The family of this 114-nucleotide RNA sequence from Stenotrophomonas koreensis is "Xanthomonadaceae sRNA sX13". The literature on the family includes a 2011 paper in Nucleic Acids Res by Schmidtke et al., "Genome-wide transcriptome analysis of the plant pathogen Xanthomonas identifies sRNAs with putative virulence functions". The organism belongs to Stenotrophomonas, within Bacteria.
RNA sequence: AACGUCUGUCGCGGAUCUCUCCCAUCCCCUGGAGCAGAUCUGGGAACGGGACCCCUCCCCAGGUUUCCGUUCCCCUGGCCCCGUCGACCCCCCCCUGGUCGGCGGGGCUUUUUA
Numbered sequence: 001a002a003c004g005u006c007u008g009u010c011g012c013g014g015a016u017c018u019c020u021c022c023c024a025u026c027c028c029c030u031g032g033a034g035c036a037g038a039u040c041u042g043g044g045a046a047c048g049g050g051a052c053c054c055c056u057c058c059c060c061a062g063g064u065u066u067c068c069g070u071u072c073c074c075c076u077g078g079c080c081c082c083g084u085c086g087a088c089c090c091c092c093c094c095c096u097g098g099u100c101g102g103c104g105g106g107g108c109u110u111u112u113u114a
Stems, first nucleotide, its partner, number of pairs: 004012001006011001013041006019034004043073007050065004077109008086100004